[Rfam]
RNA sequence: GAGCAGUGAUGAAAAGGUUUUACUGCAGACCUUUAUAACUGAAAAUUUCUACACUUGAUCUGAGCUCA
Numbered sequence: 001g002a003g004c005a006g007u008g009a010u011g012a013a014a015a016g017g018u019u020u021u022a023c024u025g026c027a028g029a030c031c032u033u034u035a036u037a038a039c040u041g042a043a044a045a046u047u048u049c050u051a052c053a054c055u056u057g058a059u060c061u062g063a064g065c066u067c068a
Stems, first nucleotide, its partner, number of pairs: 001067004013034007
This 68-nucleotide RNA sequence from Moschus moschiferus belongs to the Rfam family "Small nucleolar RNA U2-30". The organism belongs to Moschus, within Eukaryota. For this family Rfam cites "Guide RNAs with 5' Caps and Novel Box C/D snoRNA-like Domains for Modification of snRNAs in Metazoa" (Tycowski et al., Curr Biol, 2004).